[Rfam]
Rfam assigns this 70-nucleotide RNA from Felis catus to the family "Small nucleolar RNA U2-30".
It scores 73 bits against the family's covariance model.
The source organism's lineage runs through Eukaryota, Opisthokonta, Dipnotetrapodomorpha, Eutheria and Felis.
RNA sequence: CAGCAAUGAUGAAAAGGUUUUACUACUGACUUCUAUAAUUAUGAGUGUUUUUACACUUGAUCGCAGCUCA
Numbered sequence: 001c002a003g004c005a006a007u008g009a010u011g012a013a014a015a016g017g018u019u020u021u022a023c024u025a026c027u028g029a030c031u032u033c034u035a036u037a038a039u040u041a042u043g044a045g046u047g048u049u050u051u052u053a054c055a056c057u058u059g060a061u062c063g064c065a066g067c068u069c070a
Stems, first nucleotide, its partner, number of pairs: 002068003013034001015032005